Shown here is a 77-nucleotide RNA from Crocodylus porosus, a member of the family "Mammalian CPEB3 ribozyme". The base pairs follow the family's consensus structure, which is taken from published work.
Nucleotides: 077
Base pairs, nucleotide, nucleotide: 013045015044016043017042021077023075025073026072027071028040049066050065051064052063053062054061055060
Number, partner (000 for none) and nucleotide at each position: 001000g002000g003000u004000u005000g006000c007000a008000a009000g010000u011000u012000u013045g014000a015044g016043g017042c018000c019000a020000u021077a022000a023075c024000u025073g026072a027071a028040g029000u030000a031000c032000u033000c034000a035000c036000a037000g038000c039000u040028c041000a042017g043016c044015c045013c046000u047000g048000u049066c050065a051064g052063a053062u054061u055060c056000c057000a058000g059000u060055g061054a062053a063052u064051c065050u066049g067000u068000g069000a070000a071027u072026u073025c074000u075023g076000c077021u